[Rfam]
RNA sequence: GCGAGAGCUCGCCUCGCCUACCAAGCGUACCAACGCCGCAUUUCAGCACACGAGCGCUAGCUCGCUGUAUGGUUAGCUUGCGCUCGUUUACUGAGUUGCAGCGCUGGUUCGCUUGGUACGCUAGGCGCACUCUUGC
Number, nucleotide and partner (000 for none) at each position: 001g136002c135003g134004a133005g132006a131007g130008c000009u000010c127011g126012c125013c124014u123015c000016g121017c120018c000019u118020a117021c116022c115023a114024a113025g112026c111027g110028u000029a108030c107031c106032a105033a000034c103035g102036c101037c000038g099039c098040a097041u000042u095043u094044c093045a092046g091047c000048a089049c000050a087051c086052g085053a084054g083055c082056g081057c080058u000059a078060g077061c000062u075063c000064g073065c072066u000067g000068u000069a000070u000071g000072g065073u064074u000075a062076g000077c060078u059079u000080g057081c056082g055083c054084u053085c052086g051087u050088u000089u048090a000091c046092u045093g044094a043095g042096u000097u040098g039099c038100a000101g036102c035103g034104c000105u032106g031107g030108u029109u000110c027111g026112c025113u024114u023115g022116g021117u020118a019119c000120g017121c016122u000123a014124g013125g012126c011127g010128c000129a000130c007131u006132c005133u004134u003135g002136c001